A member of the RNA family "Bacteroidetes FopS (family of paralogous sRNAs)" from Prevotella sp. CAG:1185, 67 nucleotides long. Taxonomically the source falls in Prevotella (Bacteria, Pseudomonadati, Bacteroidota, Prevotellaceae). It scores 70 bits against the family's covariance model. The literature on the family includes a 2025 paper in Nat Commun by Ruttiger et al., "The global RNA-binding protein RbpB is a regulator of polysaccharide utilization in Bacteroides thetaiotaomicron". The RNA-binding protein RbpB and BTncRNA_FopS sRNA are involved in the post-transcription regulation of polysaccharide utilisation loci (PUL). FopS sRNAs function as post-transcriptional repressors by binding to the vicinity of the start codon of the first mRNA of target PUL polycistrons, typically corresponding to the cognate SusC homolog, impeding translation of the respective glycan transporter.
RNA sequence: GUGUUUUUCAUAGUAUUAGAUUUAAGGUUAACAAAAGACAGGGACUCAGCGGAGUCCUUUUUUUGUG
Numbered sequence: 001g002u003g004u005u006u007u008u009c010a011u012a013g014u015a016u017u018a019g020a021u022u023u024a025a026g027g028u029u030a031a032c033a034a035a036a037g038a039c040a041g042g043g044a045c046u047c048a049g050c051g052g053a054g055u056c057c058u059u060u061u062u063u064u065g066u067g
Stems, first nucleotide, its partner, number of pairs: 041058007